Shown here is a 73-nucleotide RNA, a member of the family "nadA riboswitch".
It is annotated as a small RNA.
Pairs were carried over by alignment from the consensus structure, which is taken from published work.
[Rfam]
RNA sequence: GCUUUCAACAUCCCCGUUCCAGUUCGAGCGGAUCGCGUGCCCGGCACGCUGGCUCGUCCGUGGAGCUGAAGGC
Numbered sequence: 001g002c003u004u005u006c007a008a009c010a011u012c013c014c015c016g017u018u019c020c021a022g023u024u025c026g027a028g029c030g031g032a033u034c035g036c037g038u039g040c041c042c043g044g045c046a047c048g049c050u051g052g053c054u055c056g057u058c059c060g061u062g063g064a065g066c067u068g069a070a071g072g073c
Base pairs, nucleotide, nucleotide: 001073002072003071004070005069006068007067016066017065018064019063020062021061026055027054028053029052031050